[Rfam]
RNA sequence: AGCCAGUGAUGAACUUUUAAUUUUCUGACACCUCGUAUGAAAACUGCUUGCAGUUGGUGAUUUUACACAUGUUCUGAGGCUU
Numbered sequence: 001a002g003c004c005a006g007u008g009a010u011g012a013a014c015u016u017u018u019a020a021u022u023u024u025c026u027g028a029c030a031c032c033u034c035g036u037a038u039g040a041a042a043a044c045u046g047c048u049u050g051c052a053g054u055u056g057g058u059g060a061u062u063u064u065a066c067a068c069a070u071g072u073u074c075u076g077a078g079g080c081u082u
Base pairs, nucleotide, nucleotide: 001081002080003079004078043054044053045052046051
Small nucleolar RNA SNORD60: an 82-nucleotide sequence from Laticauda laticaudata.
It scores 71 bits against the family's covariance model.
The organism belongs to Laticauda, within Eukaryota.
The family is grouped with related families in Rfam's "SNORD60 clan".